RNA sequence: UUAUAUUACCGGAGAAAAUCUCGUCAGGUCGAUAGUUAGGUAGUGAAUAGUUUUAUUUAAGCGUAUCUUAAGUACGCCACCCUAAUUGGUAAAAGCCCUUGCGGGGCUUUUUUCUUUGACC
Numbered sequence: 001u002u003a004u005a006u007u008a009c010c011g012g013a014g015a016a017a018a019u020c021u022c023g024u025c026a027g028g029u030c031g032a033u034a035g036u037u038a039g040g041u042a043g044u045g046a047a048u049a050g051u052u053u054u055a056u057u058u059a060a061g062c063g064u065a066u067c068u069u070a071a072g073u074a075c076g077c078c079a080c081c082c083u084a085a086u087u088g089g090u091a092a093a094a095g096c097c098c099u100u101g102c103g104g105g106g107c108u109u110u111u112u113u114c115u116u117u118g119a120c121c
Base pairs, nucleotide, nucleotide: 008029009028010027011024012022013021014020033088034087035086036085037084038083043080044079045078046057047056048055061077062076063075064074065073066072091111092110093109094108095107096106097105098104099103

Background: The record is a 121-nucleotide RNA sequence from Clostridium sp. CAG:628, which matches "DUF3800-I RNA" in Rfam. Actinobacteria, Firmicutes, Fusobacteria, Proteobacteria (1 example), Tenericutes (2 examples). It is one of the family's seed sequences. Taxonomically the source falls in Clostridium (Bacteria, Bacillota, Eubacteriales, Clostridiaceae).